[Rfam]
RNA sequence: GCACGACAACGGCAAAUCCAUCGAAAGGUGGAGACGUAAAGCCACCGGCCUACAGGCGCGAGCCCAGGGUAGCGGGGCUACCGAA
Numbered sequence: 001g002c003a004c005g006a007c008a009a010c011g012g013c014a015a016a017u018c019c020a021u022c023g024a025a026a027g028g029u030g031g032a033g034a035c036g037u038a039a040a041g042c043c044a045c046c047g048g049c050c051u052a053c054a055g056g057c058g059c060g061a062g063c064c065c066a067g068g069g070u071a072g073c074g075g076g077g078c079u080a081c082c083g084a085a
Stems, first nucleotide, its partner, number of pairs: 012037002017032006040079004045075003048070003055064003
c-di-GMP-I riboswitch aptamer: an 85-nucleotide sequence from Luteimonas granuli. Taxonomically the source falls in Luteimonas (Bacteria, Pseudomonadati, Gammaproteobacteria, Lysobacterales). Its family is annotated with cyclic-di-GMP binding in the Gene Ontology.